[Rfam]
RNA: raiA RNA
RNA sequence: UCCUCCCAGGCUGUGGUUGCGGACGGAUGCCGACGGCGCCGUCUUAGUCCAUGACAGACGCGGUCAAAGGGAUCCACGUAAGCGUCCGCGUGCGCGCGGAAGCGAUCAUGGCGCGUCCUAGAAGUAAGCCGUACCGUCCGUUUUAUUCUUAUGGGGCAAUAGGUGCCUCGCGGGCGAGCGGGCUAGUAGUGAUGCCGUCGCGGCGGUUGAGCGAACGUUCCGGUGCGCAAGUGUGGGGUCAAAGAUCAGGUCAGCUGGGAGGA
Numbered sequence: 001u002c003c004u005c006c007c008a009g010g011c012u013g014u015g016g017u018u019g020c021g022g023a024c025g026g027a028u029g030c031c032g033a034c035g036g037c038g039c040c041g042u043c044u045u046a047g048u049c050c051a052u053g054a055c056a057g058a059c060g061c062g063g064u065c066a067a068a069g070g071g072a073u074c075c076a077c078g079u080a081a082g083c084g085u086c087c088g089c090g091u092g093c094g095c096g097c098g099g100a101a102g103c104g105a106u107c108a109u110g111g112c113g114c115g116u117c118c119u120a121g122a123a124g125u126a127a128g129c130c131g132u133a134c135c136g137u138c139c140g141u142u143u144u145a146u147u148c149u150u151a152u153g154g155g156g157c158a159a160u161a162g163g164u165g166c167c168u169c170g171c172g173g174g175c176g177a178g179c180g181g182g183c184u185a186g187u188a189g190u191g192a193u194g195c196c197g198u199c200g201c202g203g204c205g206g207u208u209g210a211g212c213g214a215a216c217g218u219u220c221c222g223g224u225g226c227g228c229a230a231g232u233g234u235g236g237g238g239u240c241a242a243a244g245a246u247c248a249g250g251u252c253a254g255c256u257g258g259g260a261g262g263a
Stems, first nucleotide, its partner, number of pairs: 001263009011254003014248005051234003054064001057117006073111002078106001085099002109241001130227005135176007180220004189212002196205003